[Rfam]
RNA sequence: GGUGAAAGGUGUGCAUGGUGUCAGUCUGUGUUAUGUGUUGCUGCUGGACUGUGUUUUGCAGGCUGGGCAGCAGCGCUCACUCCACACCUGUAGCCGCACAUCAACCGGAGAUCAUAGUACUGGCCUUUGACGUCUUAAAUGACAACUUAACAUCGGCCAGCCUCCAAACUCUCCAACAUGU
Numbered sequence: 001g002g003u004g005a006a007a008g009g010u011g012u013g014c015a016u017g018g019u020g021u022c023a024g025u026c027u028g029u030g031u032u033a034u035g036u037g038u039u040g041c042u043g044c045u046g047g048a049c050u051g052u053g054u055u056u057u058g059c060a061g062g063c064u065g066g067g068c069a070g071c072a073g074c075g076c077u078c079a080c081u082c083c084a085c086a087c088c089u090g091u092a093g094c095c096g097c098a099c100a101u102c103a104a105c106c107g108g109a110g111a112u113c114a115u116a117g118u119a120c121u122g123g124c125c126u127u128u129g130a131c132g133u134c135u136u137a138a139a140u141g142a143c144a145a146c147u148u149a150a151c152a153u154c155g156g157c158c159a160g161c162c163u164c165c166a167a168a169c170u171c172u173c174c175a176a177c178a179u180g181u
Stems, first nucleotide, its partner, number of pairs: 013091003030080002035077001036075006043068002045065003050060003107174005120160006128144002131141003
Rfam assigns this 181-nucleotide RNA sequence from Oryzias javanicus to the family "Small nucleolar RNA SNORA23". Rfam links the family to the GO terms RNA processing and nucleolus. The members of this family belong to the H/ACA class of snoRNAs which are thought to guide the sites of modification of uridines to pseudouridines. Rfam classes the family as an H/ACA-box small nucleolar RNA. The match comes from Rfam's covariance-model search (87 bits). On this family, see Huttenhofer et al., EMBO J 2001: "RNomics: an experimental approach that identifies 201 candidates for novel, small, non-messenger RNAs in mouse".